[Rfam]
RNA sequence: ACCGAACUUAAUAAGAUUUUUCAUAUAAUCGCGGGGAUAUGGCCUGCAAGUUUCUACCAGUUUACCGUAAAUAAACUGACUAUGGAAAGCGAGUCCGGAUAA
Dot-bracket structure: .................((((((((...(.(((((.......))))).)........(((((((.......)))))))..))))))))..............
Source information
This 102-nucleotide RNA from Virgibacillus sp. MSP4-1 belongs to the Rfam family "Purine riboswitch aptamer". The source organism's lineage runs through Bacteria, Bacilli, Caryophanales, Bacillaceae and Virgibacillus. Its Rfam clan is "Purine riboswitches". The base pairs follow the family's consensus structure, which is taken from published work. The match comes from Rfam's covariance-model search (84 bits).